[Rfam]
RNA sequence: CAGUUUUUACUUUCGGUUAUCUAGCUUUAUGAAGUGGAACAUACUCAUACAGCUAGAUAACCAAAGAUAACAACUC
Numbered sequence: 001c002a003g004u005u006u007u008u009a010c011u012u013u014c015g016g017u018u019a020u021c022u023a024g025c026u027u028u029a030u031g032a033a034g035u036g037g038a039a040c041a042u043a044c045u046c047a048u049a050c051a052g053c054u055a056g057a058u059a060a061c062c063a064a065a066g067a068u069a070a071c072a073a074c075u076c
Stems, first nucleotide, its partner, number of pairs: 002075004007070003011066003015062012028049005
mir-9/mir-79 microRNA precursor family: a 76-nucleotide RNA sequence from Carassius auratus. Rfam 15.1 lists 5,647 matches to the family in 934 species. The match comes from Rfam's covariance-model search (64 bits). The organism belongs to Carassius, within Eukaryota. The family's consensus secondary structure was predicted with RNAalifold.